[Rfam]
RNA sequence: UCCCUGCUUUUCCUCCCUGAGCAGGAGCCUUAGCGUGAUGACAGCGAUAAGGCUUUCCGACCCCGGCUGUGAAGCCGGGGUUUUUUUU
Numbered sequence: 001u002c003c004c005u006g007c008u009u010u011u012c013c014u015c016c017c018u019g020a021g022c023a024g025g026a027g028c029c030u031u032a033g034c035g036u037g038a039u040g041a042c043a044g045c046g047a048u049a050a051g052g053c054u055u056u057c058c059g060a061c062c063c064c065g066g067c068u069g070u071g072a073a074g075c076c077g078g079g080g081u082u083u084u085u086u087u088u
Stems, first nucleotide, its partner, number of pairs: 003025006027053006061080008
The family of this 88-nucleotide RNA sequence from Mitsuaria sp. 7 is "Burkholderia RNA 7 (anti-hemB)". About the family: This RNA motif was identified by computational search in b-proteobacteria Burkholderia. Lineage of the source: Bacteria > Pseudomonadati > Pseudomonadota > Betaproteobacteria > Roseateles. The match comes from Rfam's covariance-model search (66 bits). On this family, see Sass et al., Sci Rep 2017: "Identification of small RNAs abundant in Burkholderia cenocepacia biofilms reveal putative regulators with a potential role in carbon and iron metabolism". Rfam 15.1 lists 479 matches to the family in 458 species. Gene Ontology terms of the family: protein binding and bacterial biofilm matrix.